[Rfam]
Nucleotides: 103
Base pairs, nucleotide, nucleotide: 006076007075008074009073010072015031017030018029019028020027021026032060033059034058037056038055039054040052041051042050046097047096078087079086080085
Number, partner (000 for none) and nucleotide at each position: 001000a002000a003000c004000c005000a006076g007075c008074a009073u010072c011000a012000a013000g014000a015031g016000c017030a018029g019028g020027g021026u022000u023000g024000a025000c026021g027020c028019c029018c030017u031015c032060g033059c034058c035000a036000a037056c038055c039054u040052g041051c042050c043000c044000u045000g046097u047096c048000c049000g050042g051041g052040c053000a054039a055038g056037g057000u058034g059033g060032u061000u062000c063000c064000c065000g066000a067000a068000a069000g070000g071000g072010g073009a074008u075007g076006c077000g078087g079086c080085c081000a082000c083000a084000a085080g086079g087078c088000a089000a090000c091000a092000a093000a094000g095000c096047g097046g098000g099000c100000c101000c102000a103000u
The record is a 103-nucleotide RNA, which matches "SAM-I/IV (S-adenosyl methionine) riboswitch aptamer" in Rfam. Its family is annotated with regulation of gene expression and S-adenosylmethionine metabolic process in the Gene Ontology. Clan: SAM clan. The family's consensus secondary structure is taken from published work. It is one of the family's seed sequences.